The family of this 56-nucleotide RNA sequence from Fervidibacillus halotolerans is "Ribosomal protein L13 leader".
RNA sequence: GGUACAUUGUUUUUUCCAUGAUAAGCCCCGGAAACUUAUUAUGUUGAAAAUAAACU
Numbered sequence: 001g002g003u004a005c006a007u008u009g010u011u012u013u014u015u016c017c018a019u020g021a022u023a024a025g026c027c028c029c030g031g032a033a034a035c036u037u038a039u040u041a042u043g044u045u046g047a048a049a050a051u052a053a054a055c056u
Stems, first nucleotide, its partner, number of pairs: 008052007018042008
A search with the family's covariance model found it, with a score of 52 bits. Rfam classes the family as a cis-regulatory leader. About the family: This family is a putative r-protein leader autoregulatory structure found in B. subtilis and other low-GC Gram-positive bacteria. Pairs were carried over by alignment from the consensus structure, which was predicted with CMfinder.